[Rfam]
Nucleotides: 100
Stems, first nucleotide, its partner, number of pairs: 001037002014032003042095007055081003059077007
Number, partner (000 for none) and nucleotide at each position: 001037a002036u003000g004000a005000u006000u007000a008000a009000u010000g011000a012000u013000a014032g015031a016030u017000u018000a019000a020000g021000a022000a023000a024000a025000u026000u027000g028000g029000g030016g031015u032014u033000u034000u035000g036002a037001u038000a039000a040000g041000a042095u043094g044093c045092c046091u047090c048089u049000u050000c051000u052000u053000u054000c055081a056080g057079c058000u059077a060076g061075c062074a063073a064072g065071a066000u067000c068000c069000a070000u071065u072064c073063u074062u075061g076060u077059u078000a079057g080056c081055u082000u083000u084000g085000u086000u087000c088000u089048g090047g091046a092045g093044g094043c095042a096000c097000a098000u099000a100000u

Annotation: Brassica rapa small nucleolar RNA 775: a 100-nucleotide RNA from Arabis alpina. Name based on close proximity to miR775. Precursors of both are encoded by a single gene sno-miR775. The base pairs follow the family's consensus structure. Taxonomically the source falls in Arabis (Eukaryota, eudicotyledons, Brassicales, Brassicaceae).